[Rfam]
RNA: nhaA-I RNA
Organism: Polaromonas naphthalenivorans
RNA sequence: GGGUGUCGUCAUCGCAUGCAGCGGUGCGGCAGGUUCAUGCGAUGGUCGGGCCGCCUCG
Numbered sequence: 001g002g003g004u005g006u007c008g009u010c011a012u013c014g015c016a017u018g019c020a021g022c023g024g025u026g027c028g029g030c031a032g033g034u035u036c037a038u039g040c041g042a043u044g045g046u047c048g049g050g051c052c053g054c055c056u057c058g
Stems, first nucleotide, its partner, number of pairs: 005030004010026005040058003044055003